Overview
A member of the RNA family "Streptomyces RNA 6106", 82 nucleotides long. From the family's description: Identified by deep sequencing of transcriptome at the end of exponential growth phase. Appears smaller on northern blot than sequencing transcript. It is annotated as a small RNA.
RNA sequence: ACGCCGCCCCGGGCGGCGUUCGCGGCCUCGAACGGGCCAGUGCGAAGGGUGGUGCCGUGUCGGCGCAGCACCACCCUUCGUC
Numbered sequence: 001a002c003g004c005c006g007c008c009c010c011g012g013g014c015g016g017c018g019u020u021c022g023c024g025g026c027c028u029c030g031a032a033c034g035g036g037c038c039a040g041u042g043c044g045a046a047g048g049g050u051g052g053u054g055c056c057g058u059g060u061c062g063g064c065g066c067a068g069c070a071c072c073a074c075c076c077u078u079c080g081u082c
Stems, first nucleotide, its partner, number of pairs: 001019007021042003025038001026036003044079012057066003